The family of this 103-nucleotide RNA from Pongo abelii is "Mitochondrial DNA control region secondary structure A". The base pairs follow the family's consensus structure, which is taken from published work. A reference for the family is Pereira et al. (2008), "Evidence for variable selective pressures at a large secondary structure of the human mitochondrial DNA control region", Mol Biol Evol.
[Rfam]
RNA sequence: AUAAAUCUGGUGGUACCAGAUUUGGGUACCACCCCAGUAUUGACCCAUCUUCAACGGCUUAUGUAUUUCGUACAUUCCUGCCAGCCAACAUGAAUAUCACCCA
Numbered sequence: 001a002u003a004a005a006u007c008u009g010g011u012g013g014u015a016c017c018a019g020a021u022u023u024g025g026g027u028a029c030c031a032c033c034c035c036a037g038u039a040u041u042g043a044c045c046c047a048u049c050u051u052c053a054a055c056g057g058c059u060u061a062u063g064u065a066u067u068u069c070g071u072a073c074a075u076u077c078c079u080g081c082c083a084g085c086c087a088a089c090a091u092g093a094a095u096a097u098c099a100c101c102c103a
Stems, first nucleotide, its partner, number of pairs: 006093002010089002012086002017080003022036001024034004037058002040054004061075005